[Rfam]
RNA sequence: ACAAUGAAACUUCUGUAACUCGCAGCCCGGUCAUAACGAAGACGGGGUGGCUGAAAGGCCAAUGA
Numbered sequence: 001a002c003a004a005u006g007a008a009a010c011u012u013c014u015g016u017a018a019c020u021c022g023c024a025g026c027c028c029g030g031u032c033a034u035a036a037c038g039a040a041g042a043c044g045g046g047g048u049g050g051c052u053g054a055a056a057g058g059c060c061a062a063u064g065a
Stems, first nucleotide, its partner, number of pairs: 012062001013025004026047003030043003048061003
pemK RNA: a 65-nucleotide sequence. Rfam's curators put it in the seed alignment. By type it is a cis-regulatory element.